[Rfam]
RNA: c-di-GMP-I-GGC riboswitch aptamer
Organism: Thioalkalivibrio sulfidiphilus
Nucleotides: 085
Base pairs, nucleotide, nucleotide: 003082004081011037012036016032017031018030020029021028022027035071040078041077042076043075045074046073047072048069049068050067
Number, partner (000 for none) and nucleotide at each position: 001000c002000u003082c004081g005000a006000c007000a008000a009000a010000g011037g012036c013000a014000u015000a016032c017031c018030c019000a020029g021028c022027c023000g024000a025000a026000a027022g028021g029020c030018g031017g032016g033000g034000a035071c036012g037011c038000a039000a040078a041077g042076c043075u044000a045074c046073c047072g048069g049068u050067c051000u052000a053000c054000g055000g056000g057000a058000c059000u060000u061000u062000c063000c064000c065000a066000c067050g068049a069048c070000a071035g072047c073046g074045g075043g076042g077041u078040u079000a080000c081004c082003g083000a084000a085000a